Overview: Rfam assigns this 85-nucleotide RNA from Pseudochelatococcus contaminans to the family "chrB-a RNA". NCBI's taxonomy places the organism under Bacteria, Pseudomonadati, Pseudomonadota, Alphaproteobacteria, Pseudochelatococcus.
RNA sequence: UGCAAGGGGUUGAUCGCGAUUACCCCGUGAGGCGGCAGCCUAAACAUCGCGUCCAUGUUCCCUGAAAGAGGAAUGGACGUUCAUG
Numbered sequence: 001u002g003c004a005a006g007g008g009g010u011u012g013a014u015c016g017c018g019a020u021u022a023c024c025c026c027g028u029g030a031g032g033c034g035g036c037a038g039c040c041u042a043a044a045c046a047u048c049g050c051g052u053c054c055a056u057g058u059u060c061c062c063u064g065a066a067a068g069a070g071g072a073a074u075g076g077a078c079g080u081u082c083a084u085g
Base pairs, nucleotide, nucleotide: 006026007025008024009023010022049080050079051078052077053076054075